[Rfam]
RNA sequence: AGCACCAAAAAUCAGUAACCAUGCGACUGCUAACUAGCACGGGGACUACGCUUGGGUGCUAAAAUUAAUAUCGUUAUAAUGCCGCAUACUAAACCAGAGCAUGCUAAUCCCGCCCUAGAAUGCUUGUGGCCCUGUUCUGAGACAA
Dot-bracket structure: ((((((.......(((..((.(((............))).))..))).......))))))..........(((..(((..(((((...........((((((.(((.........))).)))))))))))..)))..))).....
RNA: Small nucleolar RNA psi28S-3378